[Rfam]
Nucleotides: 079
Stems, first nucleotide, its partner, number of pairs: 012079003016075001018073002021033003044065004049060002052058001
Number, partner (000 for none) and nucleotide at each position: 001000u002000a003000c004000u005000u006000c007000c008000a009000a010000a011000a012079c013078c014077u015000a016075u017000c018073u019072c020000c021033a022032c023031c024000u025000u026000c027000a028000c029000g030000u031023g032022g033021u034000g035000a036000u037000g038000g039000c040000u041000g042000g043000g044065a045064g046063c047062u048000c049060u050059u051000u052058c053000u054000u055000a056000a057000c058052g059050a060049a061000a062047a063046g064045c065044u066000a067000c068000a069000g070000a071000c072019g073018g074000a075016g076000a077014a078013g079012g
This 79-nucleotide RNA sequence from Hermetia illucens belongs to the Rfam family "drz-agam-1 ribozyme". It scores 40 bits against the family's covariance model.